[Rfam]
RNA sequence: GCCGAGACCAGAGUCUCACCCGGGCAUGGCGUUGCCCCGGCGUGCUGGGGGCCUCGGAGAGCAGCUGCUGGCCUAUUCGCCGGCCGGGGCCCCAUGGCCGGGCCGGUCUCCAGGCCAGGGACAGGC
Numbered sequence: 001g002c003c004g005a006g007a008c009c010a011g012a013g014u015c016u017c018a019c020c021c022g023g024g025c026a027u028g029g030c031g032u033u034g035c036c037c038c039g040g041c042g043u044g045c046u047g048g049g050g051g052c053c054u055c056g057g058a059g060a061g062c063a064g065c066u067g068c069u070g071g072c073c074u075a076u077u078c079g080c081c082g083g084c085c086g087g088g089g090c091c092c093c094a095u096g097g098c099c100g101g102g103c104c105g106g107u108c109u110c111c112a113g114g115c116c117a118g119g120g121a122c123a124g125g126c
Base pairs, nucleotide, nucleotide: 002057003056004055005054006053008050009049012046013045015044017042019040020039023036024035025034026033068118069117070116071115072114073113074112079107080106081105082104083103085101087099088098090096

A member of the RNA family "Small nucleolar RNA SNORA3/SNORA45 family" from Erinaceus europaeus, 126 nucleotides long. Clan: SNORA3 clan. It scores 74 bits against the family's covariance model. Gene Ontology terms of the family: RNA processing and nucleolus. Pairs were carried over by alignment from the consensus structure, which was predicted with RNAalifold. Rfam 15.1 lists 2,080 matches to the family in 639 species. Rfam describes the family as follows. The members of this family belong to the H/ACA class of snoRNAs which are thought to guide the sites of modification of uridines to pseudouridines. This family includes mouse snoMBI-28 and human homologues ACA3 (SNORA3) and ACA3-2 (SNORA45). Both ACA3 and ACA3-2 share the same host gene. MBI-28, ACA3 and ACA3-2 are all predicted to guide the pseudouridylation of residues in 28S rRNA.